Notes
Rfam assigns this 79-nucleotide sequence from Clunio marinus to the family "mir-970 microRNA precursor family". Taxonomically the source falls in Clunio (Eukaryota, Aparaglossata, Diptera, Nematocera). Its family is annotated with miRNA-mediated post-transcriptional gene silencing and RISC complex in the Gene Ontology.
[Rfam]
RNA sequence: UGAAGGUGGCUAGUGUGUGUCUUAUUUGGUAGAGCUAAAAGAAAUAAAACCUAUCAUAAGACACACGCGGCUAUUUUCG
Dot-bracket structure: ((((((.((((.(((..((..((...(((((....................)))))..)).))..))))))).))))))